Background: Shown here is a 75-nucleotide sequence from Bacillus yapensis, a member of the family "tRNA". NCBI's taxonomy places the organism under Bacteria, Bacillota, Bacilli, Bacillaceae, Bacillus. It scores 51 bits against the family's covariance model. The family's consensus secondary structure is taken from published work.
RNA sequence: GCUGAGAUGGCAGAGCUUGGUAAUUGCAAAAGGCCUAAGCCCUUUCCAACAGAGGUUCAAAUCCUCUUCUUAGCU
Numbered sequence: 001g002c003u004g005a006g007a008u009g010g011c012a013g014a015g016c017u018u019g020g021u022a023a024u025u026g027c028a029a030a031a032g033g034c035c036u037a038a039g040c041c042c043u044u045u046c047c048a049a050c051a052g053a054g055g056u057u058c059a060a061a062u063c064c065u066c067u068u069c070u071u072a073g074c075u
Base pairs, nucleotide, nucleotide: 001074002073003072004071005070006069007068010027011026012025013024029045030044031043032042033041051067052066053065054064055063
Dot-bracket structure: (((((((..((((..........)))).(((((.......))))).....(((((.......)))))))))))).